[Rfam]
RNA sequence: CAUAUAGAGUUUUAUCCCGAUGAAAGCUAAAAAUCUUUUUUGGUUUUCAUGGGGAUAAGACCCUAUCAUGGUUAUAGUGGCUUUCGGUGUAUCCAUCUUCCAAUAGAUUAACAUUUUGUUAAUCAUCUGUUUUAACACCGAACCAUUAUUUGUUUUCAUUCAUCUCAUUUGCCAUGUAGUCUCCGUCUAUGCCUCAUCCCGUUAUGCAUAGACAAUCGAGCAUGAUGGCGACGCUGGACGUUUUGUCCAGCGUAUUUUUUUG
Number, nucleotide and partner (000 for none) at each position: 001c000002a000003u000004a066005u065006a064007g063008a000009g061010u060011u059012u058013u057014a056015u054016c053017c052018c051019g000020a050021u049022g048023a047024a046025a045026g044027c043028u042029a000030a040031a039032a038033a037034u000035c000036u000037u033038u032039u031040u030041u000042g028043g027044u026045u025046u024047u023048c022049a021050u020051g018052g017053g016054g015055a000056u014057a013058a012059g011060a010061c009062c000063c007064u006065a005066u004067c000068a000069u000070g000071g000072u000073u000074a149075u148076a147077g146078u145079g144080g143081c000082u000083u142084u141085c140086g139087g138088u137089g136090u135091a000092u000093c000094c000095a000096u000097c000098u000099u000100c000101c000102a131103a130104u129105a128106g127107a126108u000109u121110a120111a119112c118113a000114u000115u000116u000117u000118g112119u111120u110121a109122a000123u000124c000125a000126u107127c106128u105129g104130u103131u102132u000133u000134a000135a090136c089137a088138c087139c086140g085141a084142a083143c080144c079145a078146u077147u076148a075149u074150u000151u000152g000153u000154u000155u000156u000157c000158a000159u000160u000161c000162a000163u000164c000165u000166c000167a000168u000169u000170u000171g229172c228173c227174a226175u225176g000177u000178a000179g221180u220181c000182u218183c000184c000185g213186u212187c211188u210189a209190u208191g207192c206193c000194u000195c000196a000197u000198c000199c000200c000201g000202u000203u000204a000205u000206g192207c191208a190209u189210a188211g187212a186213c185214a000215a000216u000217c000218g182219a000220g180221c179222a000223u000224g000225a175226u174227g173228g172229c171230g000231a253232c252233g251234c250235u249236g000237g247238a246239c245240g244241u000242u000243u000244u240245g239246u238247c237248c000249a235250g234251c233252g232253u231254a000255u000256u000257u000258u000259u000260u000261u000262g000

Annotation
This 262-nucleotide RNA sequence from Listeria kieliensis belongs to the Rfam family "Listeria Hfq binding LhrA". It scores 230 bits against the family's covariance model. Taxonomically the source falls in Listeria (Bacteria, Bacillota, Bacilli, Listeriaceae). Gene Ontology term of the family: mRNA binding. Rfam describes the family as follows. This RNA was identifed by screening for RNA molecules which co-immunoprecipitated with the RNA chaperone Hfq. It appears to be transcribed from a region overlapping with predicted protein of unknown function (Lmo2257) and is located between a putative intracellular protease/amidase and a putative protein of the ribulose-phosphate 3 epimerase family. Its is highly expressed in stationary growth phase but its function is unkown. It is proposed to be a regulatory RNA which controls gene expression at the post transcriptional level by binding its target mRNA in an Hfq dependent fashion. It is annotated as a small RNA.